A member of the RNA family "Plant small nucleolar RNA R71" from Apium graveolens, 107 nucleotides long. Rfam 15.1 lists 278,378 matches to the family in 216 species. For this family Rfam cites "Plant snoRNAs: functional evolution and new modes of gene expression" (Brown et al., Trends Plant Sci, 2003). Rfam links the family to the GO terms RNA processing and nucleolus. Pairs were carried over by alignment from the consensus structure, which was predicted with PFOLD.

RNA sequence: AUGCCAUGGUGUGGGCACUUCAUUAGCAUCUCCUUAUAUCGAUCACAAGCCUCACACGGAGAUUCUCCAGUUUGCUGAGCAAACUGAGUAAGUGCAUUCCUGAUUAC
Numbered sequence: 001a002u003g004c005c006a007u008g009g010u011g012u013g014g015g016c017a018c019u020u021c022a023u024u025a026g027c028a029u030c031u032c033c034u035u036a037u038a039u040c041g042a043u044c045a046c047a048a049g050c051c052u053c054a055c056a057c058g059g060a061g062a063u064u065c066u067c068c069a070g071u072u073u074g075c076u077g078a079g080c081a082a083a084c085u086g087a088g089u090a091a092g093u094g095c096a097u098u099c100c101u102g103a104u105u106a107c
Base pairs, nucleotide, nucleotide: 003105005102006101057074058073060071